[Rfam]
RNA: Small nucleolar RNA SNORA3/SNORA45 family
Organism: Spermophilus dauricus
RNA sequence: AUCGAGGCUAGAGUCACGCUUGGGUAUUGGCUGUUGCCCUAGUGUGCUAGAGUCCUCGAAAAAUAACUGCUGACCUUAUUCACUGGCUGUGGGCUUCAUGGCACAGCUAGUCACCAGGUUAGUGACAUUA
Numbered sequence: 001a002u003c004g005a006g007g008c009u010a011g012a013g014u015c016a017c018g019c020u021u022g023g024g025u026a027u028u029g030g031c032u033g034u035u036g037c038c039c040u041a042g043u044g045u046g047c048u049a050g051a052g053u054c055c056u057c058g059a060a061a062a063a064u065a066a067c068u069g070c071u072g073a074c075c076u077u078a079u080u081c082a083c084u085g086g087c088u089g090u091g092g093g094c095u096u097c098a099u100g101g102c103a104c105a106g107c108u109a110g111u112c113a114c115c116a117g118g119u120u121a122g123u124g125a126c127a128u129u130a
Stems, first nucleotide, its partner, number of pairs: 002059005007053003012048002015046006023038004070122007082111005088105004